Rfam assigns this 83-nucleotide RNA from Arachis hypogaea to the family "mir-156 microRNA precursor family". The family has 10 seed sequences and 1,401 matches in Rfam 15.1. Rfam links the family to the GO terms miRNA-mediated post-transcriptional gene silencing and RISC complex. A search with the family's covariance model found it, with a score of 72 bits. The literature on the family includes a 2002 paper in Genes Dev by Reinhart et al., "MicroRNAs in plants". This family represents the plant microRNA (miRNA) precursor mir-156.
[Rfam]
RNA sequence: UUGACAGAAGAGAGUGAGCACACAGAAGCACUCGUUAUAAUUCUAUACCGUUGCUCUUGCGUGCUCACUUCUCCUUCUGUCAG
Numbered sequence: 001u002u003g004a005c006a007g008a009a010g011a012g013a014g015u016g017a018g019c020a021c022a023c024a025g026a027a028g029c030a031c032u033c034g035u036u037a038u039a040a041u042u043c044u045a046u047a048c049c050g051u052u053g054c055u056c057u058u059g060c061g062u063g064c065u066c067a068c069u070u071c072u073c074c075u076u077c078u079g080u081c082a083g
Stems, first nucleotide, its partner, number of pairs: 001083009010073003013069009023059003